[Rfam]
RNA sequence: GGAAAGGGCGGUCAACACCCGUCAGCGCGAUGCGCCCACGGGUGCUUUUUUU
Numbered sequence: 001g002g003a004a005a006g007g008g009c010g011g012u013c014a015a016c017a018c019c020c021g022u023c024a025g026c027g028c029g030a031u032g033c034g035c036c037c038a039c040g041g042g043u044g045c046u047u048u049u050u051u052u
Stems, first nucleotide, its partner, number of pairs: 016044007025035004
The record is a 52-nucleotide sequence from Methyloceanibacter methanicus, which matches "ffh sRNA" in Rfam. A search with the family's covariance model found it, with a score of 54 bits. The organism belongs to Methyloceanibacter, within Bacteria.